The family of this 64-nucleotide sequence from Nomascus leucogenys is "U7 small nuclear RNA".
Rfam's curators write: Animal histone pre-mRNAs are spliced by a different mechanism than nuclear pre-mRNAs and self-splicing introns.
The family's consensus secondary structure was predicted with PFOLD.
[Rfam]
RNA sequence: CAAAGGUUACAGGCUUUUUUAUAAUUUGUCUACCAGGCUUUCUGGUUUUUACCAGAAAGCCCCG
Numbered sequence: 001c002a003a004a005g006g007u008u009a010c011a012g013g014c015u016u017u018u019u020u021a022u023a024a025u026u027u028g029u030c031u032a033c034c035a036g037g038c039u040u041u042c043u044g045g046u047u048u049u050u051a052c053c054a055g056a057a058a059g060c061c062c063c064g
Stems, first nucleotide, its partner, number of pairs: 036061011